[Rfam]
RNA sequence: UGGAGGACUGAGAAGGUAAGACAGUUAAAACUUUAUGCUGUAUCUUACUGGUUAUAGCCUCCAAAAUUAUAAUAGUGCAACAGCAACUCAUGUUCCCUCCUGACAUGAGGGAAAGUAGUAUUGCAUUUG
Dot-bracket structure: .(((((........(((((.(((((...........))))).)..))))........))))).......................(((....(((((..(......).)))))...)))..........
About this RNA
Shown here is a 129-nucleotide RNA sequence from Calonectris borealis, a member of the family "Small nucleolar RNA SNORA47". A reference for the family is Huttenhofer et al. (2001), "RNomics: an experimental approach that identifies 201 candidates for novel, small, non-messenger RNAs in mouse", EMBO J. Taxonomically the source falls in Calonectris (Eukaryota, Bilateria, Amniota, Procellariiformes). Its family is annotated with nucleolus and RNA processing in the Gene Ontology. The family has 20 seed sequences and 733 matches in Rfam 15.1.